[Rfam]
RNA sequence: CCCAAGGCUCACGCCUUGGGCUGAGAUCUGCCAGGCCUACGCCUU
Numbered sequence: 001c002c003c004a005a006g007g008c009u010c011a012c013g014c015c016u017u018g019g020g021c022u023g024a025g026a027u028c029u030g031c032c033a034g035g036c037c038u039a040c041g042c043c044u045u
Stems, first nucleotide, its partner, number of pairs: 001020008033044004